[Rfam]
RNA sequence: UGAGUAGGUCGGAUGGUCGCGGAUGUUUACAUCCGAGGAAAGUCCGAGCUCCACAGGGCAGGGUGCUGGGUAAUACCCAGUGAGGGCGACCUCAAGGAAAGUGCAACAGAAAUAUACCGCCUAACGUUUAACCGUUAGGUAAGGGUGGAAAGGUGAGGUAAGAGCUCACCAGCACACUGGUGACAGUGUGGCUCUGUAAACCCCACCCGGAGCAAGACCAAAUAGGGGAGCUAUGUGGUGGCCCGCCACGCUCCCGGGUAAGGUCGCUGGAGGUGUCAGGCAACUGACGCCCUAGAUAGAUGACCAUCCAAGACAGAACUCGGCUUAUAGACCUGCUCAUAGU
Numbered sequence: 001u002g003a004g005u006a007g008g009u010c011g012g013a014u015g016g017u018c019g020c021g022g023a024u025g026u027u028u029a030c031a032u033c034c035g036a037g038g039a040a041a042g043u044c045c046g047a048g049c050u051c052c053a054c055a056g057g058g059c060a061g062g063g064u065g066c067u068g069g070g071u072a073a074u075a076c077c078c079a080g081u082g083a084g085g086g087c088g089a090c091c092u093c094a095a096g097g098a099a100a101g102u103g104c105a106a107c108a109g110a111a112a113u114a115u116a117c118c119g120c121c122u123a124a125c126g127u128u129u130a131a132c133c134g135u136u137a138g139g140u141a142a143g144g145g146u147g148g149a150a151a152g153g154u155g156a157g158g159u160a161a162g163a164g165c166u167c168a169c170c171a172g173c174a175c176a177c178u179g180g181u182g183a184c185a186g187u188g189u190g191g192c193u194c195u196g197u198a199a200a201c202c203c204c205a206c207c208c209g210g211a212g213c214a215a216g217a218c219c220a221a222a223u224a225g226g227g228g229a230g231c232u233a234u235g236u237g238g239u240g241g242c243c244c245g246c247c248a249c250g251c252u253c254c255c256g257g258g259u260a261a262g263g264u265c266g267c268u269g270g271a272g273g274u275g276u277c278a279g280g281c282a283a284c285u286g287a288c289g290c291c292c293u294a295g296a297u298a299g300a301u302g303a304c305c306a307u308c309c310a311a312g313a314c315a316g317a318a319c320u321c322g323g324c325u326u327a328u329a330g331a332c333c334u335g336c337u338c339a340u341a342g343u
Base pairs, nucleotide, nucleotide: 001339002338003337004336005335006334007333008332009331010330011328012308013307014306015305016304017303018302020035021034022033023032024031025030040326041325042324044323045322046321047320048319049212050211051210052209056244057243058242059241061208062207063206064205065204066080067079068078069077070076081095082093083092084091085090096203097202101201102200103197104196105195117144118143119140120139121138122137123136124135125134126133152170153169154168155167156166157165172192173190174189175188176187177186178185179184216265217264218263219262226255227254228253229252230251231250235249236248237247238246239245272291273290274289275288276287277286278285279284
Shown here is a 343-nucleotide RNA from Thermovenabulum gondwanense, a member of the family "Bacterial RNase P class A". Rfam links the family to the GO terms tRNA processing, ribonuclease P activity and dimeric ribonuclease P complex. It is annotated as a ribozyme. Ribonuclease P (RNase P) is a ubiquitous endoribonuclease, found in archaea, bacteria and eukarya as well as chloroplasts and mitochondria.